[Rfam]
RNA sequence: AGCUUUGUAGCUCAGUGGAUAGAGUAUUGGGCUCAUAACCCAAGGGUCCCUCGAUCGAGACGAGGCAAAGCUA
Numbered sequence: 001a002g003c004u005u006u007g008u009a010g011c012u013c014a015g016u017g018g019a020u021a022g023a024g025u026a027u028u029g030g031g032c033u034c035a036u037a038a039c040c041c042a043a044g045g046g047u048c049c050c051u052c053g054a055u056c057g058a059g060a061c062g063a064g065g066c067a068a069a070g071c072u073a
Stems, first nucleotide, its partner, number of pairs: 001072007010025004027043005049065005
Rfam assigns this 73-nucleotide RNA sequence from Tilletia indica to the family "tRNA". Lineage of the source: Eukaryota > Opisthokonta > Fungi > Ustilaginomycotina > Tilletia. The base pairs follow the family's consensus structure, which is taken from published work.